Rfam assigns this 62-nucleotide RNA from Coffea canephora to the family "Plastid-psbA-3 3UTR RNA". Rfam describes the family as follows. Plastid psbA-3 is a non-coding RNA (ncRNA) present in plastids. It was identified in inverted repeat sequences in the 3 prime untranslate region (3UTR) of photosystem II quinone-binding protein (psbA). Its Rfam clan is "Plastid-psbA 3UTR RNA clan". The match comes from Rfam's covariance-model search (56 bits).
RNA sequence: AAAAGAGCAAUAAUUUCUUUCUUGUUCUAUUAAGAUAAGAGGGUUUUAUUGCUCCUUUAUUU
Dot-bracket structure: (((.(((((((((.....((((((...(......)))))))....))))))))).)))....